[Rfam]
RNA sequence: AUAUCUACCUGGCAGGGUAGAUACUGUGAUCGCAAAGGUGGUCUUCCCAGGGUGAGGCUUAUCCGUUGAACUCUGGGUAUGCUGACCCCUGUGAUUUCCCCAAAUGUGGGAAACUCAACUGGGAAAAA
Numbered sequence: 001a002u003a004u005c006u007a008c009c010u011g012g013c014a015g016g017g018u019a020g021a022u023a024c025u026g027u028g029a030u031c032g033c034a035a036a037g038g039u040g041g042u043c044u045u046c047c048c049a050g051g052g053u054g055a056g057g058c059u060u061a062u063c064c065g066u067u068g069a070a071c072u073c074u075g076g077g078u079a080u081g082c083u084g085a086c087c088c089c090u091g092u093g094a095u096u097u098c099c100c101c102a103a104a105u106g107u108g109g110g111a112a113a114c115u116c117a118a119c120u121g122g123g124a125a126a127a128a
Stems, first nucleotide, its partner, number of pairs: 013121003016048002019045002023042005049090004054086001056083003060079005092117003095113003099109002